[Rfam]
RNA sequence: AAGUGAAUCGGCGAUGACGUUCGCCACUUAAAUAAUUGAUAAUCAAUUUGAUGACGUCUACUACAUG
Dot-bracket structure: .........[[[[..((((((]]]]........((((.......))))....)))))).........
This 67-nucleotide RNA from Lactiplantibacillus mudanjiangensis belongs to the Rfam family "Fluoride riboswitch aptamer (crcB RNA motif)". Pairs were carried over by alignment from the consensus structure, which is taken from published work. Lineage of the source: Bacteria > Bacillota > Bacilli > Lactobacillaceae > Lactiplantibacillus.